[Rfam]
RNA sequence: GCGAGACGCGCUGGUCCAUCCGUGACGGGCUGCGGAUAAACUGGCGGCGGAUCGCGCUCGGGCACCGCCCGGUACCGGAUCCGUACACCACGUCAGCCAGCAGCCGCUGCAAACCCAGGGAG
Numbered sequence: 001g002c003g004a005g006a007c008g009c010g011c012u013g014g015u016c017c018a019u020c021c022g023u024g025a026c027g028g029g030c031u032g033c034g035g036a037u038a039a040a041c042u043g044g045c046g047g048c049g050g051a052u053c054g055c056g057c058u059c060g061g062g063c064a065c066c067g068c069c070c071g072g073u074a075c076c077g078g079a080u081c082c083g084u085a086c087a088c089c090a091c092g093u094c095a096g097c098c099a100g101c102a103g104c105c106g107c108u109g110c111a112a113a114c115c116c117a118g119g120g121a122g
Stems, first nucleotide, its partner, number of pairs: 049082005057072001059071004098109004

Rfam assigns this 122-nucleotide sequence from Streptomyces taklimakanensis to the family "Streptomyces-metK RNA". The family's RNA type in Rfam is small RNA. Taxonomically the source falls in Streptomyces (Bacteria, Actinomycetes, Kitasatosporales, Streptomycetaceae).